[Rfam]
This 153-nucleotide RNA from Paractinoplanes tereljensis belongs to the Rfam family "c-di-AMP riboswitch aptamer (ydaO/yuaA leader)". This family represents a conserved RNA structure found upstream of the ydaO and yuaA genes in Bacillus subtilis and related genes in other bacteria. Taxonomically the source falls in Paractinoplanes (Bacteria, Bacillati, Actinomycetes, Micromonosporales).
RNA sequence: ACCGACCUGUCGCCGAUCGGAAACUUCAGUGGGCGGAAGCGGGGGACCCAAGCCGCCGGCGUUAGCCGGCUAGGGGUGAAGUCGCACUUCGCGGCGGGCCGCCUUCAGGCCUAAUCCGACAGCUGACCUCGCAGGCGGUUGAAGGGCCUAGGA
Number, nucleotide and partner (000 for none) at each position: 001a000002c000003c000004g000005a000006c000007c000008u000009g000010u000011c137012g136013c135014c134015g000016a000017u000018c036019g000020g000021a000022a000023a000024c000025u000026u000027c000028a000029g000030u000031g000032g000033g000034c000035g000036g018037a000038a000039g132040c131041g130042g129043g128044g127045g000046a000047c000048c000049c073050a000051a000052g000053c000054c000055g000056c000057c000058g000059g000060c000061g000062u000063u000064a000065g000066c000067c000068g000069g000070c000071u000072a000073g049074g117075g116076g115077u000078g000079a000080a000081g000082u094083c093084g092085c091086a000087c000088u000089u000090c000091g085092c084093g083094g082095c000096g000097g111098g110099c109100c108101g000102c000103c000104u000105u000106c000107a000108g100109g099110c098111c097112u000113a000114a000115u076116c075117c074118g000119a000120c000121a000122g000123c000124u000125g000126a000127c044128c043129u042130c041131g040132c039133a000134g014135g013136c012137g011138g000139u000140u000141g000142a000143a000144g000145g000146g000147c000148c000149u000150a000151g000152g000153a000